RNA sequence: AGCAAAGGUACGUAGUCUAAGAUCGCGACAUCCUGUCGCAACGACUGCAUGAUUAGCAUCCUGCUGA
Numbered sequence: 001a002g003c004a005a006a007g008g009u010a011c012g013u014a015g016u017c018u019a020a021g022a023u024c025g026c027g028a029c030a031u032c033c034u035g036u037c038g039c040a041a042c043g044a045c046u047g048c049a050u051g052a053u054u055a056g057c058a059u060c061c062u063g064c065u066g067a
Stems, first nucleotide, its partner, number of pairs: 012048006025039005053067005
Dot-bracket structure: ...........((((((.......(((((.....)))))...))))))....(((((.....)))))
RNA: Bacillaceae-1 RNA
Organism: Sporosarcina sp. HYO08